[Rfam]
RNA sequence: AGUCGGAGCCCGUCUUUCCAAUAUUUUGAAACCAGUACUCAUGCAAAUGGUUACAAAGUAUUCGAAAAGGCGUGCUCUGAGA
Numbered sequence: 001a002g003u004c005g006g007a008g009c010c011c012g013u014c015u016u017u018c019c020a021a022u023a024u025u026u027u028g029a030a031a032c033c034a035g036u037a038c039u040c041a042u043g044c045a046a047a048u049g050g051u052u053a054c055a056a057a058g059u060a061u062u063c064g065a066a067a068a069g070g071c072g073u074g075c076u077c078u079g080a081g082a
Stems, first nucleotide, its partner, number of pairs: 003080007011072007019064001020062009030052005
Shown here is an 82-nucleotide sequence from Caenorhabditis remanei, a member of the family "mir-85 microRNA precursor family". On this family, see Lau et al., Science 2001: "An abundant class of tiny RNAs with probable regulatory roles in Caenorhabditis elegans".